[Rfam]
RNA sequence: ACCGACAUGGAUGUUGGACGAGCUUUAAAUAUGUGAGUUUAUGCAUCGCAUAAACUCGGAGAAAGAAUUGUACAGGAUGUACAAUUCUUUCUCACCU
Numbered sequence: 001a002c003c004g005a006c007a008u009g010g011a012u013g014u015u016g017g018a019c020g021a022g023c024u025u026u027a028a029a030u031a032u033g034u035g036a037g038u039u040u041a042u043g044c045a046u047c048g049c050a051u052a053a054a055c056u057c058g059g060a061g062a063a064a065g066a067a068u069u070g071u072a073c074a075g076g077a078u079g080u081a082c083a084a085u086u087c088u089u090u091c092u093c094a095c096c097u
Stems, first nucleotide, its partner, number of pairs: 002017005034058011061093002063089011
RNA: TD-2 RNA
Organism: Treponema maltophilum